[Rfam]
RNA: Small nucleolar RNA SNORA42/SNORA80 family
RNA sequence: ACAUGGGUUUGAAUUUAUGACAGGGUCAUUCCCCUGUGCCUCUUGUAGUGACCACUCAUGGUAGAGCAAACUGACCUCUCACCAUUGCAUGGCCUCUCUGCUUUUAGGCCACUGGCACUGAAGAGAGUUACACAUGA
Numbered sequence: 001a002c003a004u005g006g007g008u009u010u011g012a013a014u015u016u017a018u019g020a021c022a023g024g025g026u027c028a029u030u031c032c033c034c035u036g037u038g039c040c041u042c043u044u045g046u047a048g049u050g051a052c053c054a055c056u057c058a059u060g061g062u063a064g065a066g067c068a069a070a071c072u073g074a075c076c077u078c079u080c081a082c083c084a085u086u087g088c089a090u091g092g093c094c095u096c097u098c099u100g101c102u103u104u105u106a107g108g109c110c111a112c113u114g115g116c117a118c119u120g121a122a123g124a125g126a127g128u129u130a131c132a133c134a135u136g137a
Base pairs, nucleotide, nucleotide: 002060003059004058005053007052008051015048016047017046018045019044020043022041023040024039025037026036072130073129074128075127077125083120084119088115090111091110092109093108094107095106